[Rfam]
RNA: MIR158 microRNA precursor family
RNA sequence: GCACGUUAUAUCUGUUCUUCUUUGUCUAUCGUUUGGAAAAGAUUGAUGACGCUAUCUACACUUUUCCAAAUGUAGACAAAGCAAAACCGUGAUGACGUCGU
Numbered sequence: 001g002c003a004c005g006u007u008a009u010a011u012c013u014g015u016u017c018u019u020c021u022u023u024g025u026c027u028a029u030c031g032u033u034u035g036g037a038a039a040a041g042a043u044u045g046a047u048g049a050c051g052c053u054a055u056c057u058a059c060a061c062u063u064u065u066c067c068a069a070a071u072g073u074a075g076a077c078a079a080a081g082c083a084a085a086a087c088c089g090u091g092a093u094g095a096c097g098u099c100g101u
Stems, first nucleotide, its partner, number of pairs: 003098007012089001014087003018083001020081010031071004036066002038063002043058001045056004